[Rfam]
RNA: Glutamine riboswitch aptamer (glnA leader)
RNA sequence: AUCGUUCAUCUUCAAAAGCUACUGAAAAAUCAACUUUUCGGUGUGAGGGCUUGUGAAGACGGAAGUAGGGAAAUCUCCCCAAGGAACGCGCC
Numbered sequence: 001a002u003c004g005u006u007c008a009u010c011u012u013c014a015a016a017a018g019c020u021a022c023u024g025a026a027a028a029a030u031c032a033a034c035u036u037u038u039c040g041g042u043g044u045g046a047g048g049g050c051u052u053g054u055g056a057a058g059a060c061g062g063a064a065g066u067a068g069g070g071a072a073a074u075c076u077c078c079c080c081a082a083g084g085a086a087c088g089c090g091c092c
Stems, first nucleotide, its partner, number of pairs: 003088005009059005062089001068079003